[Rfam]
RNA sequence: CAUUUAUAUUAGCAGUCAUGUAAUCACCCGAGCGGGUGGUCGACGCAACAGCUUAAUCGGA
Numbered sequence: 001c002a003u004u005u006a007u008a009u010u011a012g013c014a015g016u017c018a019u020g021u022a023a024u025c026a027c028c029c030g031a032g033c034g035g036g037u038g039g040u041c042g043a044c045g046c047a048a049c050a051g052c053u054u055a056a057u058c059g060g061a
Stems, first nucleotide, its partner, number of pairs: 023040007
RNA: porB RNA